[Rfam]
RNA sequence: GUUAUCCUUCGGGGUCGGGUGAAAGUCCCAACCGGCGGUGAUGAGAUUAUGAAUCUCUAAGCCCGUGACCCGUUUUUGUGUUUUACAUUAGCGGUGGAUCUAGUUAAAAUCUAGAGCCGACAGUAUAGUCUGGAUGGGAGAAGGAUCAG
Numbered sequence: 001g002u003u004a005u006c007c008u009u010c011g012g013g014g015u016c017g018g019g020u021g022a023a024a025g026u027c028c029c030a031a032c033c034g035g036c037g038g039u040g041a042u043g044a045g046a047u048u049a050u051g052a053a054u055c056u057c058u059a060a061g062c063c064c065g066u067g068a069c070c071c072g073u074u075u076u077u078g079u080g081u082u083u084u085a086c087a088u089u090a091g092c093g094g095u096g097g098a099u100c101u102a103g104u105u106a107a108a109a110u111c112u113a114g115a116g117c118c119g120a121c122a123g124u125a126u127a128g129u130c131u132g133g134a135u136g137g138g139a140g141a142a143g144g145a146u147c148a149g
Stems, first nucleotide, its partner, number of pairs: 004146007017029003031129002033119002035066004061117002070094004099115005121132003
A member of the RNA family "FMN riboswitch aptamer (RFN element)" from Priestia koreensis, 149 nucleotides long. About the family: The RFN element is a highly conserved domain that is found frequently in the 5'-untranslated regions of prokaryotic mRNAs that encode for flavin mononucleotide (FMN) biosynthesis and transport proteins. NCBI's taxonomy places the organism under Bacteria, Bacillati, Caryophanales, Bacillaceae, Priestia.